[Rfam]
RNA sequence: CGGCGACAAUGAUGACAGAGACAGUAGCUGUAGGUAAUGUCCCAUUACCACCUGGAGACACCAGUCCCUCUAAGCUGACGUUGCCG
Numbered sequence: 001c002g003g004c005g006a007c008a009a010u011g012a013u014g015a016c017a018g019a020g021a022c023a024g025u026a027g028c029u030g031u032a033g034g035u036a037a038u039g040u041c042c043c044a045u046u047a048c049c050a051c052c053u054g055g056a057g058a059c060a061c062c063a064g065u066c067c068c069u070c071u072a073a074g075c076u077g078a079c080g081u082u083g084c085c086g
Base pairs, nucleotide, nucleotide: 001086002085003084004083005082006081007080